[Rfam]
Vault RNA: a 99-nucleotide RNA sequence from Podarcis muralis.
It scores 46 bits against the family's covariance model.
Rfam 15.1 lists 2,873 matches to the family in 431 species.
RNA sequence: GAGCCAGCUUAGCCAAGCGGUUACUUUGGAAUAAUCUUUGCAGAUUCACCAAUUGCCUAACGAUAGUUUGAUAGCCCACAGGUGCUGUCUGGCUUUCUU
Numbered sequence: 001g002a003g004c005c006a007g008c009u010u011a012g013c014c015a016a017g018c019g020g021u022u023a024c025u026u027u028g029g030a031a032u033a034a035u036c037u038u039u040g041c042a043g044a045u046u047c048a049c050c051a052a053u054u055g056c057c058u059a060a061c062g063a064u065a066g067u068u069u070g071a072u073a074g075c076c077c078a079c080a081g082g083u084g085c086u087g088u089c090u091g092g093c094u095u096u097c098u099u
Stems, first nucleotide, its partner, number of pairs: 002094006012083003017079001019077002026071004